[Rfam]
This 61-nucleotide sequence from Nomascus leucogenys belongs to the Rfam family "mir-1285 microRNA precursor family". The match comes from Rfam's covariance-model search (58 bits). The base pairs follow the family's consensus structure, which was predicted with RNAalifold. Its family is annotated with RISC complex and miRNA-mediated post-transcriptional gene silencing in the Gene Ontology.
RNA sequence: GGAGGAUUUCACUUGAGCCCAGGAUUUUGAGACCAGCCUGGGCAACAAAGUGAGACCCUGU
Numbered sequence: 001g002g003a004g005g006a007u008u009u010c011a012c013u014u015g016a017g018c019c020c021a022g023g024a025u026u027u028u029g030a031g032a033c034c035a036g037c038c039u040g041g042g043c044a045a046c047a048a049a050g051u052g053a054g055a056c057c058c059u060g061u
Base pairs, nucleotide, nucleotide: 007055008054009053010052011051012050013049014048017043018042019041020040021039022038023037027036028035029034